[Rfam]
RNA sequence: UCGGCUCCGGUUCACGCACCAACGGGGGGCCAGCCCCCCGUUAACCCCCAAGGCAACACGUACCAACGGGGCAAGCUCCAGGGGUGCGACCCGGCGGCC
Numbered sequence: 001u002c003g004g005c006u007c008c009g010g011u012u013c014a015c016g017c018a019c020c021a022a023c024g025g026g027g028g029g030c031c032a033g034c035c036c037c038c039c040g041u042u043a044a045c046c047c048c049c050a051a052g053g054c055a056a057c058a059c060g061u062a063c064c065a066a067c068g069g070g071g072c073a074a075g076c077u078c079c080a081g082g083g084g085u086g087c088g089a090c091c092c093g094g095c096g097g098c099c
Stems, first nucleotide, its partner, number of pairs: 003099003007094004015088006023082001
The family of this 99-nucleotide RNA sequence is "L31-Actinobacteria ribosomal protein leader".